[Rfam]
RNA: Burkholderia RNA 7 (anti-hemB)
Organism: Iodobacter ciconiae
RNA sequence: CCUCCCGCUUUUUCCUCCCUGAGCGGGUGCUUUGGCAACGUGCCAGAGCCUGUAUAGCCCCGGUCGAUGCCUGCUCAGACCGGGGUUUCUUUU
Numbered sequence: 001c002c003u004c005c006c007g008c009u010u011u012u013u014c015c016u017c018c019c020u021g022a023g024c025g026g027g028u029g030c031u032u033u034g035g036c037a038a039c040g041u042g043c044c045a046g047a048g049c050c051u052g053u054a055u056a057g058c059c060c061c062g063g064u065c066g067a068u069g070c071c072u073g074c075u076c077a078g079a080c081c082g083g084g085g086u087u088u089c090u091u092u093u
Stems, first nucleotide, its partner, number of pairs: 004027006029049007058085008